[Rfam]
RNA sequence: AUACUUACCAGGAUGGGGUCAAUGAGCGAUCAAUAAAGUUCAUGGCCUAGGUAGGUGGCCUCCAUUGCACUUUUGGGGGUGCACCUACCUAACGUCUACCCAAAGUGGGAGAGUAUACGUCAUAAUUUGUGUUAGCAGGGGCCUGUGUUCGCGCAAUGCCUGA
Numbered sequence: 001a002u003a004c005u006u007a008c009c010a011g012g013a014u015g016g017g018g019u020c021a022a023u024g025a026g027c028g029a030u031c032a033a034u035a036a037a038g039u040u041c042a043u044g045g046c047c048u049a050g051g052u053a054g055g056u057g058g059c060c061u062c063c064a065u066u067g068c069a070c071u072u073u074u075g076g077g078g079g080u081g082c083a084c085c086u087a088c089c090u091a092a093c094g095u096c097u098a099c100c101c102a103a104a105g106u107g108g109g110a111g112a113g114u115a116u117a118c119g120u121c122a123u124a125a126u127u128u129g130u131g132u133u134a135g136c137a138g139g140g141g142c143c144u145g146u147g148u149u150c151g152c153g154c155a156a157u158g159c160c161u162g163a
Stems, first nucleotide, its partner, number of pairs: 012121004016048006023042005049090004054086001056083002059079005092116001094114001095112003099108002136162004144155004